[Rfam]
The family of this 75-nucleotide sequence from Alligator mississippiensis is "Mammalian CPEB3 ribozyme".
RNA sequence: GGUGCAAGUUCAAGGCCAUACAGGAAGCAUUCAUGAUGCAUCCUGUCAGAUUCCAUUGAAUCUGUAAAUUCUGCU
Number, nucleotide and partner (000 for none) at each position: 001g000002g000003u000004g000005c000006a000007a000008g000009u000010u000011c000012a000013a000014g043015g042016c000017c000018a000019u000020a075021c000022a000023g072024g071025a070026a069027g039028c038029a037030u000031u000032c000033a000034u000035g000036a000037u029038g028039c027040a000041u000042c015043c014044u000045g000046u000047c064048a063049g062050a061051u060052u059053c058054c000055a000056u000057u000058g053059a052060a051061u050062c049063u048064g047065u000066a000067a000068a000069u026070u025071c024072u023073g000074c000075u020